Rfam assigns this 89-nucleotide RNA from Psychrobacillus soli to the family "pan motif".
The base pairs follow the family's consensus structure, which is taken from published work.

RNA sequence: UGGGCAGUAUCGUUUGACGAACUGCACCUGUUUCAAUGAGCAAGUAAUUGAAUAGUCUGCCUUGAUCUGCAUAUGACAGGGACGGAGAA
Numbered sequence: 001u002g003g004g005c006a007g008u009a010u011c012g013u014u015u016g017a018c019g020a021a022c023u024g025c026a027c028c029u030g031u032u033u034c035a036a037u038g039a040g041c042a043a044g045u046a047a048u049u050g051a052a053u054a055g056u057c058u059g060c061c062u063u064g065a066u067c068u069g070c071a072u073a074u075g076a077c078a079g080g081g082a083c084g085g086a087g088a089a
Stems, first nucleotide, its partner, number of pairs: 002028002004025005010020002057085003060081005066076002

By type it is a cis-regulatory element. The match comes from Rfam's covariance-model search (59 bits).